[Rfam]
RNA: RAGATH-8 RNA
RNA sequence: AGCAAUCAAGAAAGCAGGAAAGAACGGGUGAAGCGAUAGGGCGGCACGCAAGUGACAUGGCGGUCAGGCUGUAGGAUAACAGACAGAGCGUGUGCAGAAUAAACAUGAUUCGUUAAAGUAGUUGAAGAAAGUAGGAACAUCAGGGCAAGAAAGCACAGUGUAUCGCACUAUUUGAAGAAAGCGGACAGGUUGAGCCGAACAACACUUUUCCCCUAGAACAAGAAGAUGUUAAGCAGAAGAAUUAACCGAGCGAGAUGACACAGCACUUGAUUGAA
Dot-bracket structure: ..((((((((.............((((((..............((((((...((((......))))..((((......)))).....))))))..............)))))).......(((((.....((...((((((((((....((((.....(((.((((..............))))))).((((.......)))).))))..))))..........))))))..)).......)))))...................))))))))..